[Rfam]
RNA sequence: UGCUGGUCCAAGUGCAGCAGUGUUUACAACUAAUUAAUCACAAUCAGUCACAGAUUUCUUUGUUCAUUCUGCAGUCCCACUGCUUUGCUUUACUAGCUUAA
Numbered sequence: 001u002g003c004u005g006g007u008c009c010a011a012g013u014g015c016a017g018c019a020g021u022g023u024u025u026a027c028a029a030c031u032a033a034u035u036a037a038u039c040a041c042a043a044u045c046a047g048u049c050a051c052a053g054a055u056u057u058c059u060u061u062g063u064u065c066a067u068u069c070u071g072c073a074g075u076c077c078c079a080c081u082g083c084u085u086u087g088c089u090u091u092a093c094u095a096g097c098u099u100a101a
Stems, first nucleotide, its partner, number of pairs: 002097006010090002014086001016081002020077001022076001028064003032060002
Shown here is a 101-nucleotide sequence from Colobus angolensis, a member of the family "Y RNA".
A search with the family's covariance model found it, with a score of 46 bits.
NCBI's taxonomy places the organism under Eukaryota, Craniata, Catarrhini, Cercopithecidae, Colobus angolensis.
Rfam 15.1 lists 26,986 matches to the family in 650 species.